[Rfam]
RNA sequence: GUGUGUUGGUGAUGAGACCACGGAACACCGCGCCAGGCGUGGCGCCCGACUCGCAUGAGGAAACUCUCCAUGCUGCCUUCCUUCUGAGCGCAC
Numbered sequence: 001g002u003g004u005g006u007u008g009g010u011g012a013u014g015a016g017a018c019c020a021c022g023g024a025a026c027a028c029c030g031c032g033c034c035a036g037g038c039g040u041g042g043c044g045c046c047c048g049a050c051u052c053g054c055a056u057g058a059g060g061a062a063a064c065u066c067u068c069c070a071u072g073c074u075g076c077c078u079u080c081c082u083u084c085u086g087a088g089c090g091c092a093c
Stems, first nucleotide, its partner, number of pairs: 001093005

Description
A member of the RNA family "Small nucleolar RNA U83B" from Megalops atlanticus, 93 nucleotides long. Rfam links the family to the GO terms nucleolus and RNA processing. It scores 70 bits against the family's covariance model. A reference for the family is Duga et al. (2000), "The intron-containing L3 ribosomal protein gene (RPL3): sequence analysis and identification of U43 and of two novel intronic small nucleolar RNAs", Biochim Biophys Acta. From the family's description: U83B belongs to the C/D family of snoRNAs. U83B like U83A has no documented RNA target and they share the same host gene with the C/D box snoRNA U43 (RPL3). N.B. U83A/B/C have no sequence similarity with the U83 snoRNA that was cloned by Jady and Kiss (2000). Pairs were carried over by alignment from the consensus structure.